[Rfam]
RNA: MIR2629 microRNA precursor family
Organism: Medicago truncatula
RNA sequence: AGUUCAGAUUUCCUCGGCAGUUAACUACAGCCGUAUUUCUAAAACUUCGGCAGUUAACUGCCGAAGGACAU
Dot-bracket structure: ..........((.(((((((((((((.(.....................).))))))))))))).))....